caulobacter sRNA CC2171: a 165-nucleotide sequence from Siccirubricoccus deserti. For this family Rfam cites "Small non-coding RNAs in Caulobacter crescentus" (Landt et al., Mol Microbiol, 2008).
[Rfam]
RNA sequence: CAACAACUGAAAGGAGGUGAUCCAGUGUCUCAUUGCCAUACGCCGCGUGCCCUGCCUGCGGCCUGGAUCAUCGUCUCCGCCACUGUGGGGACGGCUUCCUGAGCCCUGCCUAGGCCGGCAACGGCUGCAGCAAUGGGAAGGCCCCGGCGGCAACGCCGGGGCCUU
Number, nucleotide and partner (000 for none) at each position: 001c000002a000003a000004c000005a000006a000007c000008u000009g000010a000011a000012a000013g000014g000015a000016g023017g022018u000019g000020a000021u000022c017023c016024a000025g000026u000027g000028u000029c000030u000031c135032a134033u133034u132035g131036c130037c000038a000039u000040a000041c000042g000043c000044c060045g059046c000047g057048u000049g055050c054051c000052c000053u000054g050055c049056c000057u047058g000059c045060g044061g000062c000063c000064u000065g000066g000067a000068u000069c000070a000071u000072c000073g000074u000075c000076u000077c000078c000079g000080c000081c000082a000083c000084u000085g000086u112087g000088g111089g110090g109091a000092c000093g105094g104095c103096u102097u000098c000099c000100u000101g000102a096103g095104c094105c093106c000107u000108g000109c090110c089111u088112a086113g000114g125115c124116c123117g122118g000119c000120a000121a000122c117123g116124g115125c114126u000127g000128c000129a000130g036131c035132a034133a033134u032135g031136g000137g000138a165139a164140g163141g162142c161143c160144c159145c158146g157147g156148c155149g154150g000151c000152a000153a000154c149155g148156c147157c146158g145159g144160g143161g142162c141163c140164u139165u138